RNA sequence: UGGUUGGGACGACCUAACCACGCGUCAUCAUUUUAGGGGACGACCCCA
Dot-bracket structure: ((((((((....))))))))...............((((....)))).
RNA: Guanidine-II riboswitch aptamer (mini-ykkC)
Organism: Limnobaculum parvum